RNA sequence: GAUCGCUGUCCAUUCACUAAGGAUCGUCCGGCACGUACCUGCCGGUGAAGGAGAAAAAU
Numbered sequence: 001g002a003u004c005g006c007u008g009u010c011c012a013u014u015c016a017c018u019a020a021g022g023a024u025c026g027u028c029c030g031g032c033a034c035g036u037a038c039c040u041g042c043c044g045g046u047g048a049a050g051g052a053g054a055a056a057a058a059u
Stems, first nucleotide, its partner, number of pairs: 010051002013049004028045006
msiK RNA: a 59-nucleotide sequence from marine actinobacterium PHSC20C1. By type it is a cis-regulatory element.